TPP riboswitch aptamer (THI element): a 122-nucleotide RNA sequence from Zooshikella ganghwensis. The family's consensus secondary structure is taken from published work. Rfam describes the family as follows. Vitamin B(1) in its active form thiamin pyrophosphate (TPP) is an essential coenzyme that is synthesised by coupling of pyrimidine and thiazole moieties in bacteria. It scores 72 bits against the family's covariance model.
RNA sequence: GGCAUCUUGUCGGAGUGCCUGUAGAGGUGAAGUCAUUCAUCUCUCUGGCUGAGACUGCAGUUGCGGGAUCCGUGGAACCUGAUCUGGUUAGUACCAGCGAAGGAAACAAGAGUUGCCAAAGC
Numbered sequence: 001g002g003c004a005u006c007u008u009g010u011c012g013g014a015g016u017g018c019c020u021g022u023a024g025a026g027g028u029g030a031a032g033u034c035a036u037u038c039a040u041c042u043c044u045c046u047g048g049c050u051g052a053g054a055c056u057g058c059a060g061u062u063g064c065g066g067g068a069u070c071c072g073u074g075g076a077a078c079c080u081g082a083u084c085u086g087g088u089u090a091g092u093a094c095c096a097g098c099g100a101a102g103g104a105a106a107c108a109a110g111a112g113u114u115g116c117c118a119a120a121g122c
Base pairs, nucleotide, nucleotide: 006110007109008108009107010106011072012071013070014069016066017049018048019047021045056065057064058063078103079102080101084097085096086095087094